A member of the RNA family "c-di-GMP-I riboswitch aptamer" from Bacillus sp. B1-b2, 85 nucleotides long. The match comes from Rfam's covariance-model search (72 bits). The family's consensus secondary structure is taken from published work.

[Rfam]
RNA sequence: AUCAGAUAAAGGCAAACCACUUGAAAGAUUGGGACGCAAAGUGACAGGUCUAAGGUUGAGGGACUAAGAUGGCUGCACUACCUGA
Numbered sequence: 001a002u003c004a005g006a007u008a009a010a011g012g013c014a015a016a017c018c019a020c021u022u023g024a025a026a027g028a029u030u031g032g033g034a035c036g037c038a039a040a041g042u043g044a045c046a047g048g049u050c051u052a053a054g055g056u057u058g059a060g061g062g063a064c065u066a067a068g069a070u071g072g073c074u075g076c077a078c079u080a081c082c083u084g085a
Stems, first nucleotide, its partner, number of pairs: 012037002017032003021028002040079004045075003048070003055064003